Rfam assigns this 75-nucleotide sequence from Gadus morhua to the family "mir-19 microRNA precursor family". A reference for the family is Lagos-Quintana et al. (2001), "Identification of novel genes coding for small expressed RNAs", Science. Pairs were carried over by alignment from the consensus structure, which was predicted with RNAalifold. Rfam 15.1 lists 2,337 matches to the family in 651 species. Lineage of the source: Eukaryota > Bilateria > Actinopterygii > Zeiogadaria > Gadus.
RNA sequence: GUUCACUGCCAGUUUUGCGUAGUUGCUCUGCAAGAAAAUUGAGUUGUGCAAAUCUAUGCAAAACUGACGGUGUAC
Numbered sequence: 001g002u003u004c005a006c007u008g009c010c011a012g013u014u015u016u017g018c019g020u021a022g023u024u025g026c027u028c029u030g031c032a033a034g035a036a037a038a039u040u041g042a043g044u045u046g047u048g049c050a051a052a053u054c055u056a057u058g059c060a061a062a063a064c065u066g067a068c069g070g071u072g073u074a075c
Stems, first nucleotide, its partner, number of pairs: 004072005010066010023051004028046001030044002